[Rfam]
Rfam assigns this 201-nucleotide RNA to the family "RT-2 RNA". It is one of the family's seed sequences. Pairs were carried over by alignment from the consensus structure, which is taken from published work.
RNA sequence: AUAAGUUAGACCAAGUAACUUAAAAAAGUGAAGCAAUACUUUUGUGAAAGGAGAGCUUGUUCCUGAGUUUUUGAAAAAAACCAAAAAAAAUCUUCGAUGUAGAUGGCUGGACGCUGCUUGCAUGGUUGAUAAUGUAUAUCAAUUUCAUAGCCAGUUCUACUUCGCGAUAAGUACGGAGGUUAAUAAAAUAUGACAAGUGAG
Numbered sequence: 001a002u003a004a005g006u007u008a009g010a011c012c013a014a015g016u017a018a019c020u021u022a023a024a025a026a027a028g029u030g031a032a033g034c035a036a037u038a039c040u041u042u043u044g045u046g047a048a049a050g051g052a053g054a055g056c057u058u059g060u061u062c063c064u065g066a067g068u069u070u071u072u073g074a075a076a077a078a079a080a081c082c083a084a085a086a087a088a089a090a091u092c093u094u095c096g097a098u099g100u101a102g103a104u105g106g107c108u109g110g111a112c113g114c115u116g117c118u119u120g121c122a123u124g125g126u127u128g129a130u131a132a133u134g135u136a137u138a139u140c141a142a143u144u145u146c147a148u149a150g151c152c153a154g155u156u157c158u159a160c161u162u163c164g165c166g167a168u169a170a171g172u173a174c175g176g177a178g179g180u181u182a183a184u185a186a187a188a189u190a191u192g193a194c195a196a197g198u199g200a201g
Stems, first nucleotide, its partner, number of pairs: 004041002007038001019028002067081004089181008098173001099160005104153005113121002124144007164172002